The record is an 83-nucleotide RNA sequence from Bombyx mori, which matches "mir-2807 microRNA precursor family" in Rfam. On this family, see Liu et al., BMC Genomics 2010: "MicroRNAs of Bombyx mori identified by Solexa sequencing". Pairs were carried over by alignment from the consensus structure, which was predicted with RNAalifold.
RNA sequence: UUAACUCAAAUUUGUAUACAGUUGGAUCGUUUGCCUACGUUUGCCUCUAGGUUCGUUUUCCAACUGCAUACGAAUUUAAUUUA
Numbered sequence: 001u002u003a004a005c006u007c008a009a010a011u012u013u014g015u016a017u018a019c020a021g022u023u024g025g026a027u028c029g030u031u032u033g034c035c036u037a038c039g040u041u042u043g044c045c046u047c048u049a050g051g052u053u054c055g056u057u058u059u060c061c062a063a064c065u066g067c068a069u070a071c072g073a074a075u076u077u078a079a080u081u082u083a
Stems, first nucleotide, its partner, number of pairs: 008077009020065007029056001034051003039047001

Lineage of the source: Eukaryota > Altocrustacea > Aparaglossata > Heteroneura > Bombyx.